[Rfam]
RNA sequence: AGGUAAUGUCUACACUACCUUUAUCAAUGUAGGCACUCGUUCAUACUGUGGGUGGCAGGGCCACCUUAGACGUUAAUCGUCAAGGGUAUGAAGUGAGGGGGGGUUGAAUGCCCC
Numbered sequence: 001a002g003g004u005a006a007u008g009u010c011u012a013c014a015c016u017a018c019c020u021u022u023a024u025c026a027a028u029g030u031a032g033g034c035a036c037u038c039g040u041u042c043a044u045a046c047u048g049u050g051g052g053u054g055g056c057a058g059g060g061c062c063a064c065c066u067u068a069g070a071c072g073u074u075a076a077u078c079g080u081c082a083a084g085g086g087u088a089u090g091a092a093g094u095g096a097g098g099g100g101g102g103g104u105u106g107a108a109u110g111c112c113c114c
Base pairs, nucleotide, nucleotide: 001020002019003018004017007035008034009033010032011031012030013029036097037096038095039094040092041091042090043089044088045087046086047085050066051065052064053063054062055061056060069081070080071079072078100114101113102112103111104110